RNA: Small nucleolar RNA snoR111
Organism: Tetracentron sinense
RNA sequence: UUAAGAAAACGAGAUGCGUUUUUGAUGUGUCUGCCAUUGACAAACAAGCAGAGGAAGAACAAGAUGGUGAGAUAUCAUUUCAGUUGCCAUUUCCUUGAUUGGCGAUUCGAUUGUUGCUCUUCUACAA
Number, nucleotide and partner (000 for none) at each position: 001u000002u000003a000004a000005g000006a000007a038008a037009a000010c000011g034012a000013g031014a030015u029016g028017c027018g026019u000020u000021u000022u000023u000024g000025a000026u018027g017028u016029g015030u014031c013032u000033g000034c011035c000036a000037u008038u007039g000040a000041c000042a000043a000044a000045c000046a000047a000048g000049c000050a000051g000052a000053g000054g000055a000056a000057g000058a000059a000060c000061a000062a000063g000064a000065u000066g123067g122068u000069g119070a118071g117072a000073u000074a111075u110076c109077a000078u000079u000080u000081c000082a000083g106084u105085u104086g103087c102088c101089a100090u000091u098092u097093c000094c000095u000096u000097g092098a091099u000100u089101g088102g087103c086104g085105a084106u083107u000108c000109g076110a075111u074112u000113g000114u000115u000116g000117c071118u070119c069120u000121u000122c067123u066124a000125c000126a000127a000